This 86-nucleotide sequence from Oryza sativa belongs to the Rfam family "mir-156 microRNA precursor family".
RNA sequence: UUGACAGAAGAGAGUGAGCACACGGCGUGAUGGCCGGCAUAAAAUCUAUCCCGUCCUCGCCGCGUGCUCACUCCUCUUUCUGUCAC
Numbered sequence: 001u002u003g004a005c006a007g008a009a010g011a012g013a014g015u016g017a018g019c020a021c022a023c024g025g026c027g028u029g030a031u032g033g034c035c036g037g038c039a040u041a042a043a044a045u046c047u048a049u050c051c052c053g054u055c056c057u058c059g060c061c062g063c064g065u066g067c068u069c070a071c072u073c074c075u076c077u078u079u080c081u082g083u084c085a086c
Stems, first nucleotide, its partner, number of pairs: 002085008010076003013072009023062005
From the family's description: This family represents the plant microRNA (miRNA) precursor mir-156. The family has 10 seed sequences and 1,401 matches in Rfam 15.1. For this family Rfam cites "MicroRNAs in plants" (Reinhart et al., Genes Dev, 2002).